RNA sequence: CAUACUAAAACAAUGAAAGCCCUGCCUCUCUUCCAUCCUUGCGGCUCCGAAGACCGCGCCAGUGUGAAUCAGUGUUACAACAAUUCC
Numbered sequence: 001c002a003u004a005c006u007a008a009a010a011c012a013a014u015g016a017a018a019g020c021c022c023u024g025c026c027u028c029u030c031u032u033c034c035a036u037c038c039u040u041g042c043g044g045c046u047c048c049g050a051a052g053a054c055c056g057c058g059c060c061a062g063u064g065u066g067a068a069u070c071a072g073u074g075u076u077a078c079a080a081c082a083a084u085u086c087c
Stems, first nucleotide, its partner, number of pairs: 034066002038062002040058005046052001
Dot-bracket structure: .................................((..(((((((.(.....).)))))..))..)).....................
This 87-nucleotide sequence from Paenibacillus tyrphae belongs to the Rfam family "BsrC". It is annotated as a small RNA. The 301 nucleotide sequence from Kouji Nakamura has been trimmed to a highly conserved ~85 nucleotide long core to form this family. For this family Rfam cites "Novel small RNA-encoding genes in the intergenic regions of Bacillus subtilis" (Saito et al., Gene, 2008).